[Rfam]
RNA sequence: GCAAUCUCGGACAGUAGUUCUGGGGGACACGCGUAGUGACCAUUCAAGCUGAUUGUGACACUACGUAGGGUAGGUAUCGACAGAGCCUUUUGUCGAUAGACGGGAUACUAAUGUUGCUUAAGCAGCGGCAUGUAAAUGGGAAACCCAACG
Number, nucleotide and partner (000 for none) at each position: 001g000002c000003a000004a000005u000006c024007u023008c022009g021010g020011a019012c000013a000014g000015u000016a000017g000018u000019u011020c010021u009022g008023g007024g006025g000026g000027a000028c000029a000030c000031g066032c065033g064034u063035a062036g061037u060038g059039a000040c000041c055042a054043u000044u000045c000046a000047a000048g000049c000050u000051g000052a000053u000054u042055g041056u000057g000058a000059c038060a037061c036062u035063a034064c033065g032066u031067a000068g000069g000070g000071u000072a000073g000074g000075u098076a097077u096078c095079g094080a093081c092082a091083g090084a089085g000086c000087c000088u000089u084090u083091u082092g081093u080094c079095g078096a077097u076098a075099g000100a000101c000102g000103g000104g000105a000106u000107a000108c000109u000110a000111a000112u130113g129114u128115u127116g126117c125118u000119u000120a000121a000122g000123c000124a000125g117126c116127g115128g114129c113130a112131u000132g000133u000134a000135a000136a000137u000138g000139g000140g000141a000142a000143a000144c000145c000146c000147a000148a000149c000150g000